[Rfam]
RNA: ALIL pseudoknot
RNA sequence: AGCAAUUUUGCGAAAGGACGCUCGACCGCCGAUCGAAAUGAUGGUGGCAUUUGUAGACGAACACAAAGCACGGUACGGGGUCGAGCCAAUCUGCGAACAAAUUCAGAUUGCUCCG
Numbered sequence: 001a002g003c004a005a006u007u008u009u010g011c012g013a014a015a016g017g018a019c020g021c022u023c024g025a026c027c028g029c030c031g032a033u034c035g036a037a038a039u040g041a042u043g044g045u046g047g048c049a050u051u052u053g054u055a056g057a058c059g060a061a062c063a064c065a066a067a068g069c070a071c072g073g074u075a076c077g078g079g080g081u082c083g084a085g086c087c088a089a090u091c092u093g094c095g096a097a098c099a100a101a102u103u104c105a106g107a108u109u110g111c112u113c114c115g
Base pairs, nucleotide, nucleotide: 016029017027076115077114078113079112080111087110088109090107091106092105093104095102